[Rfam]
RNA: c-di-AMP riboswitch aptamer (ydaO/yuaA leader)
Organism: Gracilibacillus kekensis
RNA sequence: AUCCUUUAAUCGCUGAAUCUUUAAAGAGCGGGGGAACCAUUACUGGUAGUGAAACUACUAUCUUGGGGUGAAUCUUACUUUGUAAGAAGGGAUACUCUCAAUUCCUAAUCCGACAGCUAACCUCGUAAGCGUUAUUAAUAUCGAAG
Dot-bracket structure: ..........((((...(((....)))((((((....((........................))(((.....((((.....))))..((((.........))))...))).........)))))).))))...............
Numbered sequence: 001a002u003c004c005u006u007u008a009a010u011c012g013c014u015g016a017a018u019c020u021u022u023a024a025a026g027a028g029c030g031g032g033g034g035a036a037c038c039a040u041u042a043c044u045g046g047u048a049g050u051g052a053a054a055c056u057a058c059u060a061u062c063u064u065g066g067g068g069u070g071a072a073u074c075u076u077a078c079u080u081u082g083u084a085a086g087a088a089g090g091g092a093u094a095c096u097c098u099c100a101a102u103u104c105c106u107a108a109u110c111c112g113a114c115a116g117c118u119a120a121c122c123u124c125g126u127a128a129g130c131g132u133u134a135u136u137a138a139u140a141u142c143g144a145a146g
Stems, first nucleotide, its partner, number of pairs: 011131004018027003028126006038065002066111003074086004089105004